c-di-GMP-I riboswitch aptamer: a 93-nucleotide sequence from Alicyclobacillus sp. SO9. Taxonomically the source falls in Alicyclobacillus (Bacteria, Bacillota, Bacilli, Alicyclobacillaceae).
[Rfam]
RNA sequence: GAUCAAUAAAGGCAAACUUCAAGAAAUUGGAGGGCGCAAAGCCAUGGGUCUACGGUCGUCUGAUGUGACGACUACGAUUGCCAGGUUGCUGAU
Numbered sequence: 001g002a003u004c005a006a007u008a009a010a011g012g013c014a015a016a017c018u019u020c021a022a023g024a025a026a027u028u029g030g031a032g033g034g035c036g037c038a039a040a041g042c043c044a045u046g047g048g049u050c051u052a053c054g055g056u057c058g059u060c061u062g063a064u065g066u067g068a069c070g071a072c073u074a075c076g077a078u079u080g081c082c083a084g085g086u087u088g089c090u091g092a093u
Stems, first nucleotide, its partner, number of pairs: 012037002017032006040087004045083003048078003055072006